[Rfam]
The family of this 262-nucleotide RNA sequence from Firmicutes bacterium CAG:194 is "Bacterial large signal recognition particle RNA". About the family: The signal recognition particle (SRP) is a universally conserved ribonucleoprotein involved in the co-translational targeting of proteins to membranes. It is annotated as a non-coding RNA gene. The organism belongs to Bacillota, within Bacteria.
RNA sequence: CCGUGCAGCCGGGGCAGUAGCGGCGCCCUGUACCUACAAUCCGCUCUAGUAGGGGUGAUGGCCGGCAGAGGGUUUUGGCUUUCAUAGCUGCCCUUAAUAAGUGGCGAUGACGUCCGGGUCUUGCGCAACAGGAAUCUGUGAACCGUGUCAGGUUGGGAACAAAGCAGCACUAAGCAGAAGCUCCUGUGUGCCGUGAGGGUGCCUGGGCCGAGUUAACUGUUAAGGUAACGUAUGGGGGUUUCGCUCGAAGCAGGUCGCACGG
Numbered sequence: 001c002c003g004u005g006c007a008g009c010c011g012g013g014g015c016a017g018u019a020g021c022g023g024c025g026c027c028c029u030g031u032a033c034c035u036a037c038a039a040u041c042c043g044c045u046c047u048a049g050u051a052g053g054g055g056u057g058a059u060g061g062c063c064g065g066c067a068g069a070g071g072g073u074u075u076u077g078g079c080u081u082u083c084a085u086a087g088c089u090g091c092c093c094u095u096a097a098u099a100a101g102u103g104g105c106g107a108u109g110a111c112g113u114c115c116g117g118g119u120c121u122u123g124c125g126c127a128a129c130a131g132g133a134a135u136c137u138g139u140g141a142a143c144c145g146u147g148u149c150a151g152g153u154u155g156g157g158a159a160c161a162a163a164g165c166a167g168c169a170c171u172a173a174g175c176a177g178a179a180g181c182u183c184c185u186g187u188g189u190g191c192c193g194u195g196a197g198g199g200u201g202c203c204u205g206g207g208c209c210g211a212g213u214u215a216a217c218u219g220u221u222a223a224g225g226u227a228a229c230g231u232a233u234g235g236g237g238g239u240u241u242c243g244c245u246c247g248a249a250g251c252a253g254g255u256c257g258c259a260c261g262g
Stems, first nucleotide, its partner, number of pairs: 001262006008056003011029005018022001033053005061255003065251002070246004077240009089227002093224006101217002103214003112208008120197006126188002129186005135178005145170004153162003